[Rfam]
Nucleotides: 088
Base pairs, nucleotide, nucleotide: 005051006050007049008048009047010046011045012044015041016040017076018075019074020073021072026037027036028035029034066082067081068080069079
Number, partner (000 for none) and nucleotide at each position: 001000g002000g003000c004000g005051c006050g007049g008048g009047c010046c011045g012044u013000g014000a015041c016040u017076g018075g019074c020073g021072c022000u023000g024000a025000g026037g027036u028035g029034g030000a031000g032000c033000a034029c035028c036027a037026c038000c039000g040016g041015g042000g043000a044012g045011c046010g047009g048008c049007c050006c051005g052000g053000c054000c055000a056000c057000c058000c059000g060000g061000c062000c063000u064000c065000c066082u067081g068080c069079c070000g071000c072021g073020c074019g075018c076017c077000u078000g079069g080068g081067c082066g083000u084000u085000c086000c087000c088000u